Record summary:
Shown here is an 82-nucleotide RNA from Streptomyces kanasensis, a member of the family "nrdJ RNA". It scores 81 bits against the family's covariance model. The source organism's lineage runs through Bacteria, Bacillati, Actinomycetota, Actinomycetes and Streptomyces.

RNA sequence: ACCAGCCGGGGGCGCUGCCCGCAGCGCCCGCGGCGACAGACAGACACCGUGCCUUGGGAAGAUCUGGGCACAUCAGGGCGUU
Numbered sequence: 001a002c003c004a005g006c007c008g009g010g011g012g013c014g015c016u017g018c019c020c021g022c023a024g025c026g027c028c029c030g031c032g033g034c035g036a037c038a039g040a041c042a043g044a045c046a047c048c049g050u051g052c053c054u055u056g057g058g059a060a061g062a063u064c065u066g067g068g069c070a071c072a073u074c075a076g077g078g079c080g081u082u
Base pairs, nucleotide, nucleotide: 005034006033007032008031010029011028012027013026014025015024016023049071050070051069052068053067054066056064